Notes:
Rfam assigns this 80-nucleotide RNA from Leucobacter sp. G161 to the family "ZMP/ZTP riboswitch aptamer (pfl RNA motif)". Rfam 15.1 lists 3,295 matches to the family in 2,545 species. Its family is annotated with regulation of purine nucleotide biosynthetic process and one-carbon metabolic process in the Gene Ontology. The source organism's lineage runs through Bacteria, Actinomycetota, Micrococcales, Microbacteriaceae and Leucobacter.
[Rfam]
RNA sequence: UUACAGCGUCGUGACUGGCGUGCAGAUGGAAACCAUCGGGGAGCGACACCUAUGAACGGCCGCUCGCCUGGGCCACACAU
Numbered sequence: 001u002u003a004c005a006g007c008g009u010c011g012u013g014a015c016u017g018g019c020g021u022g023c024a025g026a027u028g029g030a031a032a033c034c035a036u037c038g039g040g041g042a043g044c045g046a047c048a049c050c051u052a053u054g055a056a057c058g059g060c061c062g063c064u065c066g067c068c069u070g071g072g073c074c075a076c077a078c079a080u
Base pairs, nucleotide, nucleotide: 006049008047009046010045011044012043015040016039017068018067019066020065026036027035028034029033058074059073060072061071
Notes
The base pairs follow the family's consensus structure, which is taken from published work. On this family, see Jones and Ferre-D'Amare, Nat Struct Mol Biol 2015: "Recognition of the bacterial alarmone ZMP through long-distance association of two RNA subdomains".